mir-1199 microRNA precursor family: a 100-nucleotide sequence from Sapajus apella. Gene Ontology terms of the family: miRNA-mediated post-transcriptional gene silencing and RISC complex. The source organism's lineage runs through Eukaryota, Opisthokonta, Haplorrhini, Cebidae and Sapajus.
RNA sequence: UGCGCGGGAGCCGGGGCCUGAGUUCUGGCCGCGCGGGCAGCGAACUCAUGGAGCUGCGCGUGCGGCCAGUGCUCAACCUGCCGGGUCCUGGCCCCGCGCU
Numbered sequence: 001u002g003c004g005c006g007g008g009a010g011c012c013g014g015g016g017c018c019u020g021a022g023u024u025c026u027g028g029c030c031g032c033g034c035g036g037g038c039a040g041c042g043a044a045c046u047c048a049u050g051g052a053g054c055u056g057c058g059c060g061u062g063c064g065g066c067c068a069g070u071g072c073u074c075a076a077c078c079u080g081c082c083g084g085g086u087c088c089u090g091g092c093c094c095c096g097c098g099c100u
Stems, first nucleotide, its partner, number of pairs: 002099004007095002010092009019075005024069001027067008037057002040054001045053003